[Rfam]
RNA sequence: GAGUGUUAGAGAUCAAGUGUGGGUGUGGCCUGGGAUGUUGUCAUGGCGACCCAUCCUUGGUUUCCAGCACUC
Numbered sequence: 001g002a003g004u005g006u007u008a009g010a011g012a013u014c015a016a017g018u019g020u021g022g023g024u025g026u027g028g029c030c031u032g033g034g035a036u037g038u039u040g041u042c043a044u045g046g047c048g049a050c051c052c053a054u055c056c057u058u059g060g061u062u063u064c065c066a067g068c069a070c071u072c
Stems, first nucleotide, its partner, number of pairs: 002071006009064006016057002021052004028047003